7SK RNA: a 323-nucleotide RNA from Halcyon senegalensis. The family's RNA type in Rfam is non-coding RNA gene. From the family's description: 7SK was discovered as an abundant small nuclear RNA in the mid-70s but a possible function has only recently been suggested. Two independent studies have found that 7SK RNA binds the CDK9/cyclin T complex (known as elongation factor P-TEFb). P-TEFb activates transcription by phosphorylating the C-terminal domain of RNA polymerase II. This process is negatively regulated by the 7SK RNP. The secondary structure of 7SK RNA shown here was proposed by Wasserman and Steitz on the basis of chemical modification and enzymatic cleavage experiments. The family's consensus secondary structure is taken from published work. It scores 258 bits against the family's covariance model.
RNA sequence: GGGAGGGCAAACUGGCUGCGACAUCUGUUGCCCCAUUGAUCGCCAGGGUGGAAUUGGCUGAUCUGGCUGUCUAGGUGGGUGUUCCCUUCCUCCCUCACUGCUUAAUGUGUGUCCCUCCCGAAGCUGCACACUCAGUCGGAGAGGAAAACCUUCCCCAGUAGAGGCGUACCAUUCAUUGGUCAAGGGUAUACCCUUGCUGCCCUCCCCUGCUAGAACCACCAAACCAGCUCAAGGUGCAUUUGUAGGAGAAUGUAGGGUAGUCAAGCUUCCAAGACAGUAGAUGCAUCCAAGUGAGGCACUGCAUGGAGCAGUCUGCCAUUGUU
Numbered sequence: 001g002g003g004a005g006g007g008c009a010a011a012c013u014g015g016c017u018g019c020g021a022c023a024u025c026u027g028u029u030g031c032c033c034c035a036u037u038g039a040u041c042g043c044c045a046g047g048g049u050g051g052a053a054u055u056g057g058c059u060g061a062u063c064u065g066g067c068u069g070u071c072u073a074g075g076u077g078g079g080u081g082u083u084c085c086c087u088u089c090c091u092c093c094c095u096c097a098c099u100g101c102u103u104a105a106u107g108u109g110u111g112u113c114c115c116u117c118c119c120g121a122a123g124c125u126g127c128a129c130a131c132u133c134a135g136u137c138g139g140a141g142a143g144g145a146a147a148a149c150c151u152u153c154c155c156c157a158g159u160a161g162a163g164g165c166g167u168a169c170c171a172u173u174c175a176u177u178g179g180u181c182a183a184g185g186g187u188a189u190a191c192c193c194u195u196g197c198u199g200c201c202c203u204c205c206c207c208u209g210c211u212a213g214a215a216c217c218a219c220c221a222a223a224c225c226a227g228c229u230c231a232a233g234g235u236g237c238a239u240u241u242g243u244a245g246g247a248g249a250a251u252g253u254a255g256g257g258u259a260g261u262c263a264a265g266c267u268u269c270c271a272a273g274a275c276a277g278u279a280g281a282u283g284c285a286u287c288c289a290a291g292u293g294a295g296g297c298a299c300u301g302c303a304u305g306g307a308g309c310a311g312u313c314u315g316c317c318a319u320u321g322u323u
Stems, first nucleotide, its partner, number of pairs: 001098001003096005010088001014086002020083010032069001033066003038063004042058003113166001114164004118135001120133002123131001136158001138156001143154003196266003202260002205257006217248001219246002223243002226240002290323002293319001295317003298312005